[Rfam]
RNA sequence: GGCUCGUUAGCUCAGCGGUAAGAGCACCCAUCUUAAUUGAAUCAAAAGAGGAGGUCGGGGGUUCAAGUCCCUCACGAGCCG
Numbered sequence: 001g002g003c004u005c006g007u008u009a010g011c012u013c014a015g016c017g018g019u020a021a022g023a024g025c026a027c028c029c030a031u032c033u034u035a036a037u038u039g040a041a042u043c044a045a046a047a048g049a050g051g052a053g054g055u056c057g058g059g060g061g062u063u064c065a066a067g068u069c070c071c072u073c074a075c076g077a078g079c080c081g
Stems, first nucleotide, its partner, number of pairs: 001080007010025004027051002057073005
This 81-nucleotide RNA sequence from Manduca sexta belongs to the Rfam family "tRNA". The source organism's lineage runs through Eukaryota, Altocrustacea, Aparaglossata, Glossata and Manduca. The match comes from Rfam's covariance-model search (50 bits).